The family of this 87-nucleotide RNA from Prunus persica is "Small nucleolar RNA U61". Its Rfam clan is "SNORD61 clan". Rfam classes the family as a C/D-box small nucleolar RNA. The literature on the family includes a 2003 paper in Nucleic Acids Res by Brown et al., "Plant snoRNA database". Lineage of the source: Eukaryota > Streptophyta > Spermatophyta > rosids > Prunus.
RNA sequence: UAGCUUUGAUGAAACUCCUUGUGUCCAGAGUCGGAGCUCUUGAGCACCUUCUAUGACGGUCACAAACCUCUAAGAAGUUCUGAGCUG
Numbered sequence: 001u002a003g004c005u006u007u008g009a010u011g012a013a014a015c016u017c018c019u020u021g022u023g024u025c026c027a028g029a030g031u032c033g034g035a036g037c038u039c040u041u042g043a044g045c046a047c048c049u050u051c052u053a054u055g056a057c058g059g060u061c062a063c064a065a066a067c068c069u070c071u072a073a074g075a076a077g078u079u080c081u082g083a084g085c086u087g
Stems, first nucleotide, its partner, number of pairs: 001087006
Dot-bracket structure: ((((((...........................................................................))))))